[Rfam]
RNA: mir-129 microRNA precursor family
RNA sequence: CUUUUUGCGGUCUGGGCUUGCUGUUCAUAAGUAUCUAGCUGGGAAGCCCUUACCCCAAAAAGCA
Numbered sequence: 001c002u003u004u005u006u007g008c009g010g011u012c013u014g015g016g017c018u019u020g021c022u023g024u025u026c027a028u029a030a031g032u033a034u035c036u037a038g039c040u041g042g043g044a045a046g047c048c049c050u051u052a053c054c055c056c057a058a059a060a061a062g063c064a
Base pairs, nucleotide, nucleotide: 001062002061003060004059005058006057007056009054010053011052014049015048016047017046019044021042022041